[Rfam]
RNA sequence: GACUGACAUAAUGGCCAUAGGAGAAGCACUCACAUCAGUGCCCUAUCAGAUUCUAAUGAAUCUGUGAAUUCUGCU
Dot-bracket structure: .............[.[..((.((((((..........))].]....(((((((....)))))))....)))).))
RNA: Mammalian CPEB3 ribozyme